[Rfam]
RNA: Bacterial RNase P class A
RNA sequence: CGAGUAAGCCAGACAAUCGCUGCUAGUCUUAGAACUAGGAGAGGAAAGUCCGAGCUCCAUAGGGCAGGAUGCUGGAUAACGUCCAGUGGAGGUGACUCUAAGGAUAGUGCAACAGAAAUAAACCGCCUAGAUUUAUCUAGGUAAGGGUGGAAAGGUGAGGUAAGAGCUCACCAGGGUAUAGGUGACUAUACUGCUAUGUAAACCCCAUCUGGAGCAAGACCAAAUAGGAGGACAUAUAGGGGCUGCCCGUCCCGUCCUCGGGUGUGUCGCUUGAGCCUAUCGGCAACGGUAGGCCUAGAUAGAUGAUUGUCAAAUACAGAACUCGGCUUAUAGACUUAUCUCGUAUU
Dot-bracket structure: ((((((((.(((((((((.((.(((((......))))).))....[[[.[[[[[((((...[[[[.((((((((((.....)))))(((((....)))).)((...(((((...........(((((((((....)))))))..)).......((((((.......)))))).((((((((....))))))).)..)))..)))))))))))))...(((.......((((((.....(((((.]]]])))))))))))......)))......((((((((....))))))))..........)))))))..........]]]]]]]].).).)))).))))....